Rfam assigns this 131-nucleotide RNA sequence from Salipaludibacillus keqinensis to the family "PyrR binding site". A search with the family's covariance model found it, with a score of 55 bits. A reference for the family is Bonner et al. (2001), "Molecular recognition of pyr mRNA by the Bacillus subtilis attenuation regulatory protein PyrR", Nucleic Acids Res. Lineage of the source: Bacteria > Bacillati > Bacilli > Caryophanales > Salipaludibacillus.
[Rfam]
RNA sequence: CCUCCCUUUAACCCAGUCCUGAGAGGCUGAAAAGGGGUAUAUUCCUCCUCUUUAUGUUCGGAGUGCCGAUUUGUGUACUUUGCCAUAGAGGGACGAAUAACCUCUUUCGCCUGGAAAGAGGUUUUUUGUAU
Numbered sequence: 001c002c003u004c005c006c007u008u009u010a011a012c013c014c015a016g017u018c019c020u021g022a023g024a025g026g027c028u029g030a031a032a033a034g035g036g037g038u039a040u041a042u043u044c045c046u047c048c049u050c051u052u053u054a055u056g057u058u059c060g061g062a063g064u065g066c067c068g069a070u071u072u073g074u075g076u077a078c079u080u081u082g083c084c085a086u087a088g089a090g091g092g093a094c095g096a097a098u099a100a101c102c103u104c105u106u107u108c109g110c111c112u113g114g115a116a117a118g119a120g121g122u123u124u125u126u127u128g129u130a131u
Stems, first nucleotide, its partner, number of pairs: 003037007014029005048092009096126002099123010